[Rfam]
RNA sequence: GCCUAGGGUAGAGGUAGCUGUAUUCAAUAGUAUUCAAUAGGAGCUGGUAAGCGUUGAUAAUUGAUGAAAGGGUAUAUAGCCGAAGAAAUUUUGUUGACGGACAAAUUUUCUGGACUUAUGCAGAAUAUGCAUAAGGCUGUCACUUUUAAAGUGGUGAGCUACAAGGUUA
Numbered sequence: 001g002c003c004u005a006g007g008g009u010a011g012a013g014g015u016a017g018c019u020g021u022a023u024u025c026a027a028u029a030g031u032a033u034u035c036a037a038u039a040g041g042a043g044c045u046g047g048u049a050a051g052c053g054u055u056g057a058u059a060a061u062u063g064a065u066g067a068a069a070g071g072g073u074a075u076a077u078a079g080c081c082g083a084a085g086a087a088a089u090u091u092u093g094u095u096g097a098c099g100g101a102c103a104a105a106u107u108u109u110c111u112g113g114a115c116u117u118a119u120g121c122a123g124a125a126u127a128u129g130c131a132u133a134a135g136g137c138u139g140u141c142a143c144u145u146u147u148a149a150a151g152u153g154g155u156g157a158g159c160u161a162c163a164a165g166g167u168u169a
Stems, first nucleotide, its partner, number of pairs: 008162004017080007025072001034064005040058001084111005090105006112138002115135008140154006
Rfam assigns this 169-nucleotide RNA from Clostridioides difficile to the family "Lysine riboswitch aptamer". It scores 106 bits against the family's covariance model. Pairs were carried over by alignment from the consensus structure, which is taken from published work. Lineage of the source: Bacteria > Bacillati > Bacillota > Clostridia > Clostridioides.